[Rfam]
RNA sequence: CCUUUAUCUUUUAAAAGUUUCAAGUUGGUCCCUUAUCUUUAUUUUAGGUUUCAAGUUGGUCCCUUCCGUCAGUUUUUUAACUAUUUCCGUUAAAUUUGGACACGUGGCACACUUGGACAGAUGACACGUGUCCAAAUUUAACGGUAACAGUACAAAAUUGACGGAAGCGACCAACUUGAAACCUAAAAAUAAGAUAAGGGACCAACUUGAAACUUUUAAAAGAUAAGGGA
Dot-bracket structure: .(((((((..............(((.(((.(((((((((..((.(((.......................................................................................................................................))).))..))))))))).))).)))..............)))))))..